[Rfam]
RNA sequence: UAAUUCCUGGAAUGUUCGACACUCUUACCUACUUUGAACCUACAUUUUGACAUUCGGGAUUCCAAUAUUUUUAAGCGGAUGUCAGGCCUCCUAUAUUGAGUGGAAGGCAGAAGCUUAAGUGAGGUCGCCCACCUAGCAAGGCUAGGCGUCAAACAGUAAGAACCGGCAUUUUGGGGUUACA
Dot-bracket structure: ..(.(((((((((((.((..............(.(((.((...............(((...((...(..(((((((.....((...((.(.........).))..)).....))))))))..))...)))..............))..))).)..........))))))))))))).)...
Numbered sequence: 001u002a003a004u005u006c007c008u009g010g011a012a013u014g015u016u017c018g019a020c021a022c023u024c025u026u027a028c029c030u031a032c033u034u035u036g037a038a039c040c041u042a043c044a045u046u047u048u049g050a051c052a053u054u055c056g057g058g059a060u061u062c063c064a065a066u067a068u069u070u071u072u073a074a075g076c077g078g079a080u081g082u083c084a085g086g087c088c089u090c091c092u093a094u095a096u097u098g099a100g101u102g103g104a105a106g107g108c109a110g111a112a113g114c115u116u117a118a119g120u121g122a123g124g125u126c127g128c129c130c131a132c133c134u135a136g137c138a139a140g141g142c143u144a145g146g147c148g149u150c151a152a153a154c155a156g157u158a159a160g161a162a163c164c165g166g167c168a169u170u171u172u173g174g175g176g177u178u179a180c181a
Stems, first nucleotide, its partner, number of pairs: 003178001005176011017165002033153001035151003039146002056130003062124002067120001070119007082107002087103002090100001